[Rfam]
RNA sequence: AAAAACAUGCAAAUUCAAUAUAUUGCAGGAGUCUCGUAGGCCU
Numbered sequence: 001a002a003a004a005a006c007a008u009g010c011a012a013a014u015u016c017a018a019u020a021u022a023u024u025g026c027a028g029g030a031g032u033c034u035c036g037u038a039g040g041c042c043u
Stems, first nucleotide, its partner, number of pairs: 006029001008027005
A member of the RNA family "ES036 (CssrF) sRNA" from Escherichia coli, 43 nucleotides long. Rfam 15.1 lists 273 matches to the family in 31 species. It is annotated as a small RNA. Pairs were carried over by alignment from the consensus structure, which was predicted with RNAfold. Taxonomically the source falls in Escherichia coli (Bacteria, Pseudomonadati, Gammaproteobacteria, Enterobacteriaceae). About the family: Differentially expressed under several chemical stress conditions. Also identified in Shigella as CssrF. The match comes from Rfam's covariance-model search (47 bits).